This 54-nucleotide RNA sequence from Coregonus sp. 'balchen' belongs to the Rfam family "UnaL2 LINE 3' element". Pairs were carried over by alignment from the consensus structure, which is taken from published work. Its family is annotated with transposition, RNA-mediated in the Gene Ontology. It scores 66 bits against the family's covariance model.

RNA sequence: UCAAUUUAAAUUUGUAAGUCGCUUUGGAUAAGAGCGUCUGCUAAAUGACGUAAA
Numbered sequence: 001u002c003a004a005u006u007u008a009a010a011u012u013u014g015u016a017a018g019u020c021g022c023u024u025u026g027g028a029u030a031a032g033a034g035c036g037u038c039u040g041c042u043a044a045a046u047g048a049c050g051u052a053a054a
Base pairs, nucleotide, nucleotide: 013043014041015040016039020036021035022034023033024032025031